[Rfam]
RNA sequence: AAUCGCAAAGGCGAUGGAGGUCCGCCUGCCCUUCGCUAGAGGGGCGAACCGCCCAAAGGAGGCUAAUGGCUCCUGUUCGCAU
Numbered sequence: 001a002a003u004c005g006c007a008a009a010g011g012c013g014a015u016g017g018a019g020g021u022c023c024g025c026c027u028g029c030c031c032u033u034c035g036c037u038a039g040a041g042g043g044g045c046g047a048a049c050c051g052c053c054c055a056a057a058g059g060a061g062g063c064u065a066a067u068g069g070c071u072c073c074u075g076u077u078c079g080c081a082u
Stems, first nucleotide, its partner, number of pairs: 010026004016073004021068001051063003
Description
Shown here is an 82-nucleotide RNA from bacterium HR16, a member of the family "Fluoride riboswitch aptamer (crcB RNA motif)". Rfam links the family to the GO terms positive regulation of gene expression and response to fluoride.